[Rfam]
RNA sequence: UUGGCUGCCUGGCUCUGAGAACUGAAUUCCGUAGGCUAUGAGCUCUAGCAAAUGCCCUAGGAACUCAGUUCUGGUGCCCGGCCAUGCUAU
Number, nucleotide and partner (000 for none) at each position: 001u000002u000003g000004g000005c000006u000007g000008c081009c080010u000011g078012g077013c076014u000015c000016u000017g000018a072019g071020a070021a069022c068023u067024g066025a065026a000027u000028u000029c000030c000031g000032u000033a000034g056035g055036c054037u000038a000039u000040g000041a000042g000043c000044u000045c000046u000047a000048g000049c000050a000051a000052a000053u000054g036055c035056c034057c000058u000059a000060g000061g000062a000063a000064c000065u025066c024067a023068g022069u021070u020071c019072u018073g000074g000075u000076g013077c012078c011079c000080g009081g008082c000083c000084a000085u000086g000087c000088u000089a000090u000
Description:
A member of the RNA family "mir-146 microRNA precursor family" from Trichechus manatus, 90 nucleotides long. A search with the family's covariance model found it, with a score of 88 bits. A reference for the family is Cai et al. (2005), "Kaposi's sarcoma-associated herpesvirus expresses an array of viral microRNAs in latently infected cells", Proc Natl Acad Sci U S A.